[Rfam]
RNA: mir-2774 microRNA precursor family
Organism: Bombyx mori
RNA sequence: AUUUUUUCGGACCGUCGGUCUACCGAGCAAUAUCACCCGCUCGGUGGAAGAUCUUCCCUCCGU
Numbered sequence: 001a002u003u004u005u006u007u008c009g010g011a012c013c014g015u016c017g018g019u020c021u022a023c024c025g026a027g028c029a030a031u032a033u034c035a036c037c038c039g040c041u042c043g044g045u046g047g048a049a050g051a052u053c054u055u056c057c058c059u060c061c062g063u
Stems, first nucleotide, its partner, number of pairs: 001063002009057003014052003019048010